RNA sequence: CCAACGGUUGGGUCUGAAGGAAGUCAUAGGAAGUAUAUGGCACAUAACGAAAGUGAACCUGCUUCGGCAUAGUAGAUGGGUAAGCGUGCAAAAUAGCGCAAAGCCCAAUACUUAGUCAAAUCUAUUAUGUGUUUGAGGAUGGAGUCAUAUACAGGGCGUC
Numbered sequence: 001c002c003a004a005c006g007g008u009u010g011g012g013u014c015u016g017a018a019g020g021a022a023g024u025c026a027u028a029g030g031a032a033g034u035a036u037a038u039g040g041c042a043c044a045u046a047a048c049g050a051a052a053g054u055g056a057a058c059c060u061g062c063u064u065c066g067g068c069a070u071a072g073u074a075g076a077u078g079g080g081u082a083a084g085c086g087u088g089c090a091a092a093a094u095a096g097c098g099c100a101a102a103g104c105c106c107a108a109u110a111c112u113u114a115g116u117c118a119a120a121u122c123u124a125u126u127a128u129g130u131g132u133u134u135g136a137g138g139a140u141g142g143a144g145u146c147a148u149a150u151a152c153a154g155g156g157c158g159u160c
Base pairs, nucleotide, nucleotide: 001011002010003009004008035150036149037148038147039146040145043141044140045139058138059137060136067130068129069128071126072125073124074123075122076121077120078106079105080104081103084099085098086097087096

Notes: Group II catalytic intron D1-D4-3: a 160-nucleotide RNA sequence from Thorsellia anophelis. The match comes from Rfam's covariance-model search (63 bits). From the family's description: Group II introns are found in rRNA, tRNA and mRNA of organelles in fungi, plants and protists, and also in mRNA in bacteria.